Bacterial RNase P class A: a 481-nucleotide sequence from Inhella inkyongensis. Rfam classes the family as a ribozyme. Ribonuclease P (RNase P) is a ubiquitous endoribonuclease, found in archaea, bacteria and eukarya as well as chloroplasts and mitochondria.
[Rfam]
RNA sequence: GAAGUGGCCCAGACCGCCGCUGGGGCAAGACCCGAAAGGGUGCCCUGGAGGAAGGUCCGGACUGCAUAGAGCAGCGUAGGGGGUAACACCCCUCCGGCGUGAGCCGAGGAUCAGAGCAACAGAGACGAGUUUGAGUGGGUAGCGCGGGCGCGGUGCAAGCUGCAACCGCCGCGAAACCGUUCAGGGGUGGUCUGCGGGUCCAGCGCAAGCUGGGAGCCGGUGCGCAAGCGCCGGCUUUGGGUGCAACCCAAAACCCGCAGCACCUUGGGCGGCCCGGGCGCCGCAAGGCACUCGACCCGCCCAAGGUGAAACGGGCAAUCUCUACGCGCAGCAACACCAAGUAGGCCGGUUUUGAGGUGGCUCGCUGAGCCGGCGGGUAGGUGGCAUCGAGCCGGGGUGUGAGCCCCGGCCCAGAGGAAUGGCGGUCACCGCAAUCGAAAGAGAGCGGACACAGAAUCCGGCCUAUCGGGCCGCUUCACGA
Numbered sequence: 001g002a003a004g005u006g007g008c009c010c011a012g013a014c015c016g017c018c019g020c021u022g023g024g025g026c027a028a029g030a031c032c033c034g035a036a037a038g039g040g041u042g043c044c045c046u047g048g049a050g051g052a053a054g055g056u057c058c059g060g061a062c063u064g065c066a067u068a069g070a071g072c073a074g075c076g077u078a079g080g081g082g083g084u085a086a087c088a089c090c091c092c093u094c095c096g097g098c099g100u101g102a103g104c105c106g107a108g109g110a111u112c113a114g115a116g117c118a119a120c121a122g123a124g125a126c127g128a129g130u131u132u133g134a135g136u137g138g139g140u141a142g143c144g145c146g147g148g149c150g151c152g153g154u155g156c157a158a159g160c161u162g163c164a165a166c167c168g169c170c171g172c173g174a175a176a177c178c179g180u181u182c183a184g185g186g187g188u189g190g191u192c193u194g195c196g197g198g199u200c201c202a203g204c205g206c207a208a209g210c211u212g213g214g215a216g217c218c219g220g221u222g223c224g225c226a227a228g229c230g231c232c233g234g235c236u237u238u239g240g241g242u243g244c245a246a247c248c249c250a251a252a253a254c255c256c257g258c259a260g261c262a263c264c265u266u267g268g269g270c271g272g273c274c275c276g277g278g279c280g281c282c283g284c285a286a287g288g289c290a291c292u293c294g295a296c297c298c299g300c301c302c303a304a305g306g307u308g309a310a311a312c313g314g315g316c317a318a319u320c321u322c323u324a325c326g327c328g329c330a331g332c333a334a335c336a337c338c339a340a341g342u343a344g345g346c347c348g349g350u351u352u353u354g355a356g357g358u359g360g361c362u363c364g365c366u367g368a369g370c371c372g373g374c375g376g377g378u379a380g381g382u383g384g385c386a387u388c389g390a391g392c393c394g395g396g397g398u399g400u401g402a403g404c405c406c407c408g409g410c411c412c413a414g415a416g417g418a419a420u421g422g423c424g425g426u427c428a429c430c431g432c433a434a435u436c437g438a439a440a441g442a443g444a445g446c447g448g449a450c451a452c453a454g455a456a457u458c459c460g461g462c463c464u465a466u467c468g469g470g471c472c473g474c475u476u477c478a479c480g481a
Base pairs, nucleotide, nucleotide: 001477002476003475004474005473006472007471008470009469010468011466012427013426014425015424016423017422018421020048021047022046023045024044025043026042027041053464054463055462057461058460059459060458061457062331063330064329065328069363070362071361072360074327075326076325077324078323079093080092081091082090083089094108095106096105097104098103109322110321114320115319116316117315131186132185133182134181135180136179137178138177140175194258195257196256197255198254261308262307263306264305265304266303267302268301269300270299271298272297335383336382337381338380345374346373347372348371349370350369356366357365358364391410392409393408394407395406396405397404398403